[Rfam]
RNA sequence: AAAUUAGUAUAAGUAUAUCCCAUGCAACACUUGGGAUAUACUUAUACUAAAA
Dot-bracket structure: .....(((((((.(((.(((((........).)))).))).)))))))....
A member of the RNA family "mir-1302 microRNA precursor family" from Cervus elaphus, 52 nucleotides long. The family's consensus secondary structure was predicted with WAR. The literature on the family includes a 2008 paper in Genome Res by Morin et al., "Application of massively parallel sequencing to microRNA profiling and discovery in human embryonic stem cells".